[Rfam]
Shown here is a 155-nucleotide RNA sequence from Modestobacter muralis, a member of the family "c-di-AMP riboswitch aptamer (ydaO/yuaA leader)". NCBI's taxonomy places the organism under Bacteria, Bacillati, Actinomycetota, Geodermatophilaceae, Modestobacter. It scores 74 bits against the family's covariance model.
RNA sequence: ACUCGGACCCCGUCGAACUGCCACCGCUCGCGGUGGCGGACCGGGGACCCAUCGUUCCCCUGGGGUGAAUCUCGCCUGGCCACCGUGCCGCGGUGAGUAGGGCUGUCUCCGGCCCGAACCCGUCAGCUAACUCGGUAGACGGUGAGGGAGAACGG
Numbered sequence: 001a002c003u004c005g006g007a008c009c010c011c012g013u014c015g016a017a018c019u020g021c022c023a024c025c026g027c028u029c030g031c032g033g034u035g036g037c038g039g040a041c042c043g044g045g046g047a048c049c050c051a052u053c054g055u056u057c058c059c060c061u062g063g064g065g066u067g068a069a070u071c072u073c074g075c076c077u078g079g080c081c082a083c084c085g086u087g088c089c090g091c092g093g094u095g096a097g098u099a100g101g102g103c104u105g106u107c108u109c110c111g112g113c114c115c116g117a118a119c120c121c122g123u124c125a126g127c128u129a130a131c132u133c134g135g136u137a138g139a140c141g142g143u144g145a146g147g148g149a150g151a152a153c154g155g
Base pairs, nucleotide, nucleotide: 011141012140013139014138018039019038020037021036022035023034024033025032026031040136041135042134043133044132045131050062051061063121064120065119071097072096073095074094075093076092100115101114102113103112